RNA sequence: ACAUAGCCCAGAUUGAAGAGAAAAUCCUUUUUAUUCGCCUUAGCGAAUAAAAAGAUUGAAACGAAAAGCUGGAAAUAGC
Dot-bracket structure: ........(((.((...(....((((..((((((((((....)))))))))).))))....)...)).)))........
Shown here is a 79-nucleotide sequence from Flavobacterium micromati, a member of the family "Flavo-1 RNA".